[Rfam]
RNA sequence: GGGGAACGAGAGAGGGGCUGGUGCCUUGAGCCAGCCCAAGCCCUAGAAAGCCCAGGCUCA
Numbered sequence: 001g002g003g004g005a006a007c008g009a010g011a012g013a014g015g016g017g018c019u020g021g022u023g024c025c026u027u028g029a030g031c032c033a034g035c036c037c038a039a040g041c042c043c044u045a046g047a048a049a050g051c052c053c054a055g056g057c058u059c060a
Stems, first nucleotide, its partner, number of pairs: 014044006021037001023035002028059005
The record is a 60-nucleotide RNA sequence from Octodon degus, which matches "Ma3 gene ribosomal frameshift signal" in Rfam.
The source organism's lineage runs through Eukaryota, Vertebrata, Eutheria, Octodontidae and Octodon.
The family's RNA type in Rfam is frameshift element.